RNA: Gag/pol translational readthrough site
Organism: Moschus moschiferus
RNA sequence: UAGGAAAGUCAGGGCCAGGAGCCCCCCCCUGAGCCUAGGAUAACUCUCGAUGUCGGGGGCAA
Numbered sequence: 001u002a003g004g005a006a007a008g009u010c011a012g013g014g015c016c017a018g019g020a021g022c023c024c025c026c027c028c029c030u031g032a033g034c035c036u037a038g039g040a041u042a043a044c045u046c047u048c049g050a051u052g053u054c055g056g057g058g059g060c061a062a
Base pairs, nucleotide, nucleotide: 008041009040010039012036013035014034015033016031017030018029019028023059024058025057026056027055